RNA sequence: AAAGGAGCAAUAACAAACCUCUUGAUAUAACAAGAAAUUUUUUAUUACUCCUUUACUU
Numbered sequence: 001a002a003a004g005g006a007g008c009a010a011u012a013a014c015a016a017a018c019c020u021c022u023u024g025a026u027a028u029a030a031c032a033a034g035a036a037a038u039u040u041u042u043u044a045u046u047a048c049u050c051c052u053u054u055a056c057u058u
Base pairs, nucleotide, nucleotide: 001054002053003052004051005050006049007048009046010045011044012043013042020035021034022033023032024031
The record is a 58-nucleotide RNA from Pyrus ussuriensis x Pyrus communis, which matches "Plastid-psbA-3 3UTR RNA" in Rfam. For this family Rfam cites "Retrograde signaling in plants: A critical review focusing on the GUN pathway and beyond" (Richter et al., Plant Commun, 2023). The match comes from Rfam's covariance-model search (59 bits). The family's consensus secondary structure was predicted with LocARNA. Rfam describes the family as follows. Plastid psbA-3 is a non-coding RNA (ncRNA) present in plastids. The family is grouped with related families in Rfam's "Plastid-psbA 3UTR RNA clan".